[Rfam]
RNA sequence: ACGCACGUUGCACCCCGGGCUUCUCUGAGAGUUCUCACUGAAGAUGAAAGCCCCAAUGCUCGUGCUAAAACGUCGCCGUUAAGUGUUGCAGUUUAGUUUUGCUCCCCACGGCUUUUCUGUGUCAAAUCGACGGCUAUAUCU
Numbered sequence: 001a002c003g004c005a006c007g008u009u010g011c012a013c014c015c016c017g018g019g020c021u022u023c024u025c026u027g028a029g030a031g032u033u034c035u036c037a038c039u040g041a042a043g044a045u046g047a048a049a050g051c052c053c054c055a056a057u058g059c060u061c062g063u064g065c066u067a068a069a070a071c072g073u074c075g076c077c078g079u080u081a082a083g084u085g086u087u088g089c090a091g092u093u094u095a096g097u098u099u100u101g102c103u104c105c106c107c108a109c110g111g112c113u114u115u116u117c118u119g120u121g122u123c124a125a126a127u128c129g130a131c132g133g134c135u136a137u138a139u140c141u
Stems, first nucleotide, its partner, number of pairs: 003065005010059002017053005022047002024044003075134006084124002087121005096112003
Dot-bracket structure: ..(((((..((.....((((((((((...............))).)).)))))....)).))))).........((((((...((.(((((....(((...........)))....))))).))....)))))).......

Shown here is a 141-nucleotide RNA sequence from Prunus persica, a member of the family "small nucleolar RNA snoR134". NCBI's taxonomy places the organism under Eukaryota, Euphyllophyta, rosids, Rosales, Prunus. Its family is annotated with nucleolus and RNA processing in the Gene Ontology. A search with the family's covariance model found it, with a score of 112 bits. Rfam classes the family as an H/ACA-box small nucleolar RNA.